[Rfam]
RNA sequence: GGACGGAACUCUGGAGAGACCUAUUUGAAUAGGCGCCGAAGGGGCAAGGCAAUCUCGCUCAAUCUCUCAGGCAAAAGGACAGGGAUGAAUAG
Numbered sequence: 001g002g003a004c005g006g007a008a009c010u011c012u013g014g015a016g017a018g019a020c021c022u023a024u025u026u027g028a029a030u031a032g033g034c035g036c037c038g039a040a041g042g043g044g045c046a047a048g049g050c051a052a053u054c055u056c057g058c059u060c061a062a063u064c065u066c067u068c069a070g071g072c073a074a075a076a077g078g079a080c081a082g083g084g085a086u087g088a089a090u091a092g
Stems, first nucleotide, its partner, number of pairs: 007086001009084005020033004035072003038068002042066003048059002
RNA: Glycine riboswitch aptamer